[Rfam]
Nucleotides: 079
Stems, first nucleotide, its partner, number of pairs: 018047003024079007031043001033041001051068005057062001
Number, partner (000 for none) and nucleotide at each position: 001000a002000g003000a004000g005000g006000u007000c008000u009000c010000a011000a012000g013000u014000u015000u016000g017000a018047g019046g020045c021000c022000a023000a024079a025078g026077c027076a028075g029074a030073a031043g032000c033041g034000c035000u036000c037000a038000u039000g040000g041033u042000u043031c044000a045020g046019c047018c048000u049000g050000u051068c052067a053066g054065a055064u056000u057062c058000g059000a060000a061000c062057g063000c064055a065054u066053c067052u068051g069000u070000g071000a072000a073030u074029u075028c076027u077026g078025c079024u

The record is a 79-nucleotide RNA sequence from Alligator sinensis, which matches "Mammalian CPEB3 ribozyme" in Rfam.
Pairs were carried over by alignment from the consensus structure, which is taken from published work.
Rfam describes the family as follows. The mammalian CPEB3 ribozyme is a self cleaving RNA located in the second intron of the CPEB3 gene which belongs to a family of genes regulating messenger RNA polyadenylation.